[Rfam]
RNA sequence: CACUUCCCCCGAUGCGACACAACAUCCUGCUGUGGUGUUGUGUGAUGACCUGCAGUGUCGGUCGGCGGAAGUG
Numbered sequence: 001c002a003c004u005u006c007c008c009c010c011g012a013u014g015c016g017a018c019a020c021a022a023c024a025u026c027c028u029g030c031u032g033u034g035g036u037g038u039u040g041u042g043u044g045a046u047g048a049c050c051u052g053c054a055g056u057g058u059c060g061g062u063c064g065g066c067g068g069a070a071g072u073g
Stems, first nucleotide, its partner, number of pairs: 001073007010064004021039006047059003
About this RNA
A member of the RNA family "bZIP non canonical Hac1/Xbp1 intron" from Neurospora tetrasperma, 73 nucleotides long. Lineage of the source: Eukaryota > Opisthokonta > saccharomyceta > leotiomyceta > Neurospora tetrasperma. About the family: bZIP intron RNA is a non-canonical intron that was first reported in HAC1 gene in yeast and XBP1 gene in Metazoa. For this family Rfam cites "Conserved RNA structures in the non-canonical Hac1/Xbp1 intron" (Hooks and Griffiths-Jones, RNA Biol, 2011). Rfam classes the family as a small RNA.